[Rfam]
RNA: FMN riboswitch aptamer (RFN element)
RNA sequence: AAUAAUCUUCAGGGCGGGGCGAAAUUCCCCACCGGCGGUAUAGCCCGCGAGCCUUAGUGGCAUGAUUCGGUUAGAUUCCGAAGCCGACAGUAAAGUCUGGAUGAAAGAAGGUAAAG
Dot-bracket structure: ..(.((((((......(((.......))).[[((((((....[[))))....(......).....(((((.......)))))]])).(((....]]))).......)))))).)..